[Rfam]
RNA sequence: CCAUUCUUGGCAUGCACACUGUUCAUCUGUACUCAUGUUUGUGUGUGUUAACAAGUCCAGUGCUAUGUCUUCGGUGCCAGAAUGUUCCCCGUCUUCUGGUUCUAUCCUCAAUCGCUGGGACAUUC
Number, nucleotide and partner (000 for none) at each position: 001c045002c000003a000004u000005u000006c000007u000008u000009g000010g000011c037012a036013u035014g034015c000016a000017c000018a030019c029020u000021g027022u000023u000024c000025a000026u000027c021028u000029g019030u018031a000032c000033u000034c014035a013036u012037g011038u000039u000040u000041g000042u000043g000044u000045g001046u000047g000048u000049u000050a000051a000052c000053a000054a000055g000056u000057c000058c117059a116060g115061u114062g113063c000064u000065a000066u000067g000068u000069c000070u000071u000072c000073g000074g000075u000076g000077c099078c098079a097080g096081a095082a094083u000084g093085u000086u000087c000088c000089c000090c000091g000092u000093c084094u082095u081096c080097u079098g078099g077100u000101u000102c000103u000104a000105u000106c000107c000108u000109c000110a000111a000112u000113c062114g061115c060116u059117g058118g000119g000120a000121c000122a000123u000124u000125c000
Description:
A member of the RNA family "Small nucleolar RNA SNORA57" from Oncorhynchus mykiss, 125 nucleotides long. It is annotated as an H/ACA-box small nucleolar RNA. The organism belongs to Oncorhynchus, within Eukaryota. It scores 60 bits against the family's covariance model. Gene Ontology terms of the family: nucleolus and RNA processing.